The family of this 37-nucleotide RNA sequence from Dasypus novemcinctus is "XIST RNA A repeat". By type it is a small RNA.
RNA sequence: UUGCCCAACGAGGCCUCAGAUACCUGCUUUAAUUUUU
Dot-bracket structure: ..(((......)))..(((....)))...........
The family has 54 seed sequences and 900 matches in Rfam 15.1. The sequence is in the family's curated seed alignment.